[Rfam]
The family of this 183-nucleotide RNA sequence is "malK-I RNA". It is annotated as a cis-regulatory element.
RNA sequence: CGGCAGGGCACCGCUCACUCCACAACAUGAACGGCAGCCGGCUGCAGAAAAAGGAGGAACUCAUGCCCCCAGCCAGGGGUGCGGCAGUGUGGAGACCUGCCGCAAAGCGCGGCCGACGUAUGCGCGGCGCGUGAGGCGGCUCGUUGAAGGAGUUCGGGGCCGCUAUGGCAAAACACUAUGGCA
Numbered sequence: 001c002g003g004c005a006g007g008g009c010a011c012c013g014c015u016c017a018c019u020c021c022a023c024a025a026c027a028u029g030a031a032c033g034g035c036a037g038c039c040g041g042c043u044g045c046a047g048a049a050a051a052a053g054g055a056g057g058a059a060c061u062c063a064u065g066c067c068c069c070c071a072g073c074c075a076g077g078g079g080u081g082c083g084g085c086a087g088u089g090u091g092g093a094g095a096c097c098u099g100c101c102g103c104a105a106a107g108c109g110c111g112g113c114c115g116a117c118g119u120a121u122g123c124g125c126g127g128c129g130c131g132u133g134a135g136g137c138g139g140c141u142c143g144u145u146g147a148a149g150g151a152g153u154u155c156g157g158g159g160c161c162g163c164u165a166u167g168g169c170a171a172a173a174c175a176c177u178a179u180g181g182c183a
Base pairs, nucleotide, nucleotide: 007039008038009037011034012033013032015030016029017028066079067078068077069076072169073168074167075166080104081103082102083101084100085099086098087097089096090095107132108131109130110129111128113127114126115125135164136163137162138161139160140159141158142157146155147154148153
The family's consensus secondary structure is taken from published work.